The record is a 235-nucleotide RNA sequence from Nosema granulosis, which matches "Nuclear RNase P" in Rfam. Clan: RNaseP clan. Its family is annotated with tRNA processing, ribonuclease P complex and ribonuclease P activity in the Gene Ontology. NCBI's taxonomy places the organism under Eukaryota, Fungi, Microsporidia, Apansporoblastina, Nosema. Rfam classes the family as a ribozyme. Pairs were carried over by alignment from the consensus structure, which is taken from published work.

[Rfam]
RNA sequence: GCAGCCAGAAGCUUUCGUAAGGGGAUUUCCCAUGGGAAGGUCUGAGAGGGACAGCGUCGAAAUGACAUGUAGUUAAUGCUACAAUCUAGUUUAAUAGAAAUUCGCUACUUGUCUGACCGAUAGGGAUGAUGGCAAUGUUGGUUUGGAAAAUACUAGUAGUCCCAUUCAAAAUAGUCAAACUCGAAAGGCAGUGAUUGUUCCCACUGUAACUCAAUUCAGACUACUCUUUGGCUGC
Number, nucleotide and partner (000 for none) at each position: 001g235002c234003a233004g232005c000006c000007a229008g228009a227010a000011g000012c187013u186014u185015u184016c183017g182018u000019a000020a033021g000022g031023g030024g029025a000026u000027u000028u000029c024030c023031c022032a000033u020034g000035g000036g000037a000038a000039g000040g000041u000042c219043u218044g217045a216046g215047a000048g000049g162050g161051a160052c159053a000054g000055c000056g066057u065058c064059g000060a000061a000062a000063u000064g058065a057066c056067a000068u083069g082070u081071a080072g079073u078074u000075a000076a000077u000078g073079c072080u071081a070082c069083a068084a000085u000086c156087u155088a154089g153090u152091u000092u000093a000094a000095u000096a000097g000098a000099a000100a000101u000102u000103c000104g142105c141106u140107a000108c000109u000110u000111g000112u000113c000114u000115g000116a000117c000118c000119g000120a000121u000122a000123g000124g000125g000126a000127u000128g000129a000130u000131g000132g000133c000134a000135a000136u000137g000138u000139u000140g106141g105142u104143u000144u000145g000146g000147a000148a000149a000150a000151u000152a090153c089154u088155a087156g086157u000158a000159g052160u051161c050162c049163c000164a000165u000166u000167c000168a000169a000170a000171a000172u000173a000174g000175u000176c000177a000178a000179a000180c000181u000182c017183g016184a015185a014186a013187g012188g207189c206190a205191g204192u203193g202194a000195u000196u000197g000198u000199u000200c000201c000202c193203a192204c191205u190206g189207u188208a000209a000210c000211u000212c000213a000214a000215u046216u045217c044218a043219g042220a000221c000222u000223a000224c000225u000226c000227u009228u008229u007230g000231g000232c004233u003234g002235c001